[Rfam]
RNA sequence: AUGUAUUCUGUUCGCUUACGAUAAGAAGGCAAUAAAAAAGUAGUCAUAAUAUCCACAAGCGUGGGCUUUUUUGUUGUACUUGUUUGGCGAAUUGAGACAUGAUAUGGGUGAAAUGUAGCCAUUGGGCUAUGUGUUUUUCUCUUGUCUUUUGACGUUGGUAUGCAGACUAAAGCUCGCAUUGCGGAGUUUAGCCUGCAUUUUUUAU
Number, nucleotide and partner (000 for none) at each position: 001a000002u000003g000004u000005a000006u000007u095008c094009u000010g092011u091012u090013c089014g088015c087016u000017u000018a000019c000020g084021a083022u082023a081024a080025g079026a000027a000028g000029g077030c076031a075032a074033u073034a072035a071036a070037a069038a068039a067040g066041u065042a000043g000044u000045c000046a000047u064048a000049a000050u063051a062052u061053c000054c000055a000056c000057a000058a000059g000060c000061g052062u051063g050064g047065g041066c040067u039068u038069u037070u036071u035072u034073g033074u032075u031076g030077u029078a000079c025080u024081u023082g022083u021084u020085u000086g000087g015088c014089g013090a012091a011092u010093u000094g008095a007096g146097a145098c144099a143100u000101g141102a140103u000104a000105u000106g000107g000108g000109u000110g135111a134112a000113a000114u000115g000116u129117a128118g127119c000120c000121a000122u000123u000124g000125g000126g000127c118128u117129a116130u000131g000132u000133g000134u111135u110136u000137u000138u000139c000140u102141c101142u000143u099144g098145u097146c096147u000148u000149u000150u000151g000152a000153c000154g000155u000156u000157g000158g000159u000160a198161u197162g196163c195164a194165g193166a000167c191168u190169a000170a188171a187172g000173c000174u184175c183176g182177c181178a000179u000180u000181g177182c176183g175184g174185a000186g000187u171188u170189u000190a168191g167192c000193c165194u164195g163196c162197a161198u160199u000200u000201u000202u000203u000204a000205u000
The record is a 205-nucleotide RNA sequence from Clostridium aminobutyricum, which matches "Enterococcus sRNA 1300" in Rfam. It scores 72 bits against the family's covariance model. For this family Rfam cites "Small RNAs in vancomycin-resistant Enterococcus faecium involved in daptomycin response and resistance" (Sinel et al., Sci Rep, 2017). Pairs were carried over by alignment from the consensus structure, which was predicted with RNAfold. Taxonomically the source falls in Clostridium (Bacteria, Bacillota, Clostridia, Clostridiaceae).